[Rfam]
RNA: LOOT RNA
RNA sequence: AGCCUAAACCGCGCAGCAAUGCGUGGCAUGGCUCAAAAACCUUCGCAGUAAAAAGCUCCUAGUCAGAGCUCCUGCGAAGGUCACGUGCCGAAAGGUACGUGGGCAGUCGUAAGACUGUC
Dot-bracket structure: ((((....(((((((....)))))))...))))......(((((((((.....(((((.......))))).))))))))).((((((((....))))))))((((((......))))))
Numbered sequence: 001a002g003c004c005u006a007a008a009c010c011g012c013g014c015a016g017c018a019a020u021g022c023g024u025g026g027c028a029u030g031g032c033u034c035a036a037a038a039a040c041c042u043u044c045g046c047a048g049u050a051a052a053a054a055g056c057u058c059c060u061a062g063u064c065a066g067a068g069c070u071c072c073u074g075c076g077a078a079g080g081u082c083a084c085g086u087g088c089c090g091a092a093a094g095g096u097a098c099g100u101g102g103g104c105a106g107u108c109g110u111a112a113g114a115c116u117g118u119c
Stems, first nucleotide, its partner, number of pairs: 001033004009026007040080009054070005082101008102119006